[Rfam]
RNA sequence: AAAAUAAAUAAUAAGAUAACUCAUAUAAUUCUGUAAUAAGGUCAGAAGUCUCUACAGGCUACCGUAAAUAGCCUACUAUGAGUGGAAAAACCUAGUUG
Numbered sequence: 001a002a003a004a005u006a007a008a009u010a011a012u013a014a015g016a017u018a019a020c021u022c023a024u025a026u027a028a029u030u031c032u033g034u035a036a037u038a039a040g041g042u043c044a045g046a047a048g049u050c051u052c053u054a055c056a057g058g059c060u061a062c063c064g065u066a067a068a069u070a071g072c073c074u075a076c077u078a079u080g081a082g083u084g085g086a087a088a089a090a091c092c093u094a095g096u097u098g
Stems, first nucleotide, its partner, number of pairs: 019083007030046004056074006
The family of this 98-nucleotide RNA sequence from Hypnocyclicus thermotrophus is "Purine riboswitch aptamer". On this family, see Reining et al., Nature 2013: "Three-state mechanism couples ligand and temperature sensing in riboswitches". The base pairs follow the family's consensus structure, which is taken from published work. Riboswitches are metabolite binding domains within certain messenger RNAs that serve as precision sensors for their corresponding targets. Gene Ontology term of the family: purine nucleobase biosynthetic process.